[Rfam]
RNA: Yersinia sRNA 155(RyfD)
RNA sequence: GAGAGAAAUCCGAGGGAAGAUUUCCCUCGGAAUUUCUCAAUUUCCGAGGGAAUGUAAUUCCCUCGGAAAUCCGAGGGAUUUUAUUCCCUCGGAAAUUGAAAAAUUCCGAGGGAGUCCCAUUCCCUCGGAUUUUUUUAA
Numbered sequence: 001g002a003g004a005g006a007a008a009u010c011c012g013a014g015g016g017a018a019g020a021u022u023u024c025c026c027u028c029g030g031a032a033u034u035u036c037u038c039a040a041u042u043u044c045c046g047a048g049g050g051a052a053u054g055u056a057a058u059u060c061c062c063u064c065g066g067a068a069a070u071c072c073g074a075g076g077g078a079u080u081u082u083a084u085u086c087c088c089u090c091g092g093a094a095a096u097u098g099a100a101a102a103a104u105u106c107c108g109a110g111g112g113a114g115u116c117c118c119a120u121u122c123c124c125u126c127g128g129a130u131u132u133u134u135u136u137a138a
Stems, first nucleotide, its partner, number of pairs: 002136017019116003022052011061076006077082001085113010